[Rfam]
RNA sequence: UUCUCAGGGACUUGUGGCCGAGUGUCUAUAGGCGGUGGCUCAAGGCGCCCAUAUCCGUAAAGGGCGUGGUUUGAAGCCUGUCCCCCUUUAGUGCGCAGGUUGCAAGUGCUGCAAAGUAAUUUGCGGUAGGCUGGCAAGUGGUGACUGAGGGGCGGCUCAGGCUGGCGACAGAGCAGGCAAAACUCAGCCCUGCGCACAGAUGGGGGAGAACUGGCUUAAGCAGUUGUUAGUGACCUCUGGU
Numbered sequence: 001u002u003c004u005c006a007g008g009g010a011c012u013u014g015u016g017g018c019c020g021a022g023u024g025u026c027u028a029u030a031g032g033c034g035g036u037g038g039c040u041c042a043a044g045g046c047g048c049c050c051a052u053a054u055c056c057g058u059a060a061a062g063g064g065c066g067u068g069g070u071u072u073g074a075a076g077c078c079u080g081u082c083c084c085c086c087u088u089u090a091g092u093g094c095g096c097a098g099g100u101u102g103c104a105a106g107u108g109c110u111g112c113a114a115a116g117u118a119a120u121u122u123g124c125g126g127u128a129g130g131c132u133g134g135c136a137a138g139u140g141g142u143g144a145c146u147g148a149g150g151g152g153c154g155g156c157u158c159a160g161g162c163u164g165g166c167g168a169c170a171g172a173g174c175a176g177g178c179a180a181a182a183c184u185c186a187g188c189c190c191u192g193c194g195c196a197c198a199g200a201u202g203g204g205g206g207a208g209a210a211c212u213g214g215c216u217u218a219a220g221c222a223g224u225u226g227u228u229a230g231u232g233a234c235c236u237c238u239g240g241u
Base pairs, nucleotide, nucleotide: 053241054240055239059238061236062235063234074217075216076215077214078213080211081210082206083205085204086203087202089200091197092196093195094194095193096192097191098190099189100137101136102135103134105132106131107128108127109126110125111124112123113122114121115120139143145187146186147185148184149183155178156177157176162171163170164169
The record is a 241-nucleotide sequence from Effrenium voratum, which matches "Protozoan signal recognition particle RNA" in Rfam.
The literature on the family includes a 2003 paper in Nucleic Acids Res by Rosenblad et al., "SRPDB: Signal Recognition Particle Database".
Its Rfam clan is "SRP clan".
Taxonomically the source falls in Effrenium (Eukaryota, Sar, Alveolata, Dinophyceae).
The family's RNA type in Rfam is non-coding RNA gene.